[Rfam]
RNA sequence: GCAACCUCAAGCUCGCCGGCGAAAGCAAGACGGUGUUCCGCUCCAUCCUGGGCAUCUCCUGGAUGUGGUUCAUCGGUGCGGUGCUGAUGUCGCAGUUCCCGUCUUUCGCGAAGGACGUGCUG
Numbered sequence: 001g002c003a004a005c006c007u008c009a010a011g012c013u014c015g016c017c018g019g020c021g022a023a024a025g026c027a028a029g030a031c032g033g034u035g036u037u038c039c040g041c042u043c044c045a046u047c048c049u050g051g052g053c054a055u056c057u058c059c060u061g062g063a064u065g066u067g068g069u070u071c072a073u074c075g076g077u078g079c080g081g082u083g084c085u086g087a088u089g090u091c092g093c094a095g096u097u098c099c100c101g102u103c104u105u106u107c108g109c110g111a112a113g114g115a116c117g118u119g120c121u122g
Stems, first nucleotide, its partner, number of pairs: 010049002015044001018041001021038003025034002051121005057115004063105001065103001067099002071095001074092005
Dot-bracket structure: .........((...(..(..(((.((......)).)))..)..)...)).(((((.((((..(.(.((..(..(((((.........)))))..)..))...).)......)))).))))).
The family of this 122-nucleotide sequence from Caldimonas caldifontis is "Burkholderia RNA 11". The organism belongs to Caldimonas, within Bacteria. The match comes from Rfam's covariance-model search (78 bits). Rfam classes the family as a small RNA. Gene Ontology term of the family: protein binding. A reference for the family is Ramos et al. (2013), "Experimental identification of small non-coding regulatory RNAs in the opportunistic human pathogen Burkholderia cenocepacia J2315", Genomics. Co-purified with Hfq, expression confirmed by Northern blot.